A member of the RNA family "U11 spliceosomal RNA" from Myotis davidii, 134 nucleotides long. The family is grouped with related families in Rfam's "U1 clan". The family's RNA type in Rfam is spliceosomal small nuclear RNA. A search with the family's covariance model found it, with a score of 105 bits.
RNA sequence: AAAAAGGCCUUCUGUCGUGAGUGGCACACGUAGAGCAGCCUGAUUGCUCUACGUGUGGAAUCGACAUCGAGCGAGUUCGGAAGCAUAAUUUUUUGGUACUUGGACAGCUGGUGAUCGUUGGUCCUGGCGUCCGC
Numbered sequence: 001a002a003a004a005a006g007g008c009c010u011u012c013u014g015u016c017g018u019g020a021g022u023g024g025c026a027c028a029c030g031u032a033g034a035g036c037a038g039c040c041u042g043a044u045u046g047c048u049c050u051a052c053g054u055g056u057g058g059a060a061u062c063g064a065c066a067u068c069g070a071g072c073g074a075g076u077u078c079g080g081a082a083g084c085a086u087a088a089u090u091u092u093u094u095g096g097u098a099c100u101u102g103g104a105c106a107g108c109u110g111g112u113g114a115u116c117g118u119u120g121g122u123c124c125u126g127g128c129g130u131c132c133g134c
Stems, first nucleotide, its partner, number of pairs: 009083004013026005027055012056079004061074002102132004107128005113123004